The family of this 91-nucleotide RNA sequence from Thamnophis sirtalis is "mir-7 microRNA precursor family". On this family, see Lagos-Quintana et al., Science 2001: "Identification of novel genes coding for small expressed RNAs". Lineage of the source: Eukaryota > Opisthokonta > Eumetazoa > Sarcopterygii > Thamnophis. Rfam's curators write: This family represents the microRNA (miRNA) precursor mir-7.
RNA sequence: UGCCAGACUCCUUAUGGAAGACUAGUGAUUUUGUUGUUUCUGUAGCUCAUCUCAUGACAACAAGUCGCAGUCUGCCUUAUGGGGUCUGGUC
Number, nucleotide and partner (000 for none) at each position: 001u000002g090003c089004c088005a087006g086007a085008c084009u000010c082011c081012u000013u079014a078015u000016g076017g075018a000019a073020g072021a071022c070023u069024a000025g068026u067027g066028a065029u064030u063031u062032u000033g061034u060035u059036g058037u057038u056039u000040c000041u000042g000043u000044a000045g000046c000047u000048c000049a000050u000051c000052u000053c000054a000055u000056g038057a037058c036059a035060a034061c033062a031063a030064g029065u028066c027067g026068c025069a023070g022071u021072c020073u019074g000075c017076c016077u000078u014079a013080u000081g011082g010083g000084g008085u007086c006087u005088g004089g003090u002091c000